[Rfam]
RNA sequence: GUCGCGUCAGCGCCGUAGGCAGGAGCGGGGGACCCAGGUAAGUGCCCGGCCGGGAGACCGGACGGGCUUGGGGUGAAGUCGUGCGCAAGGUCGCGCGGCCGGACACUCACUGGUCCGAACCCGACAGCUCACCUCGCAGGCGUCGGUGAGGGGAUCU
Dot-bracket structure: (((...((..............))((((((....(((((..........................)))))(((.....((((((........))))))..((((........))))...))).........)))))).)))................